[Rfam]
RNA sequence: GUGCAGUGCGUCUAGGGUUCCGGUCGCUUUGGCGAUGCCUGGUCCGAGAGACGCACCCGAAGCCCCAAUAACGACGGGGCUUCGGGACACGGCGGGCCAAAAUCCCGGGAGGU
Numbered sequence: 001g002u003g004c005a006g007u008g009c010g011u012c013u014a015g016g017g018u019u020c021c022g023g024u025c026g027c028u029u030u031g032g033c034g035a036u037g038c039c040u041g042g043u044c045c046g047a048g049a050g051a052c053g054c055a056c057c058c059g060a061a062g063c064c065c066c067a068a069u070a071a072c073g074a075c076g077g078g079g080c081u082u083c084g085g086g087a088c089a090c091g092g093c094g095g096g097c098c099a100a101a102a103u104c105c106c107g108g109g110a111g112g113u
Stems, first nucleotide, its partner, number of pairs: 007055006015045002020042002022039001023036005056086011088108001090111001094106003
Source information:
Shown here is a 113-nucleotide sequence from Bauldia litoralis, a member of the family "Guanidine-I riboswitch aptamer". It scores 86 bits against the family's covariance model.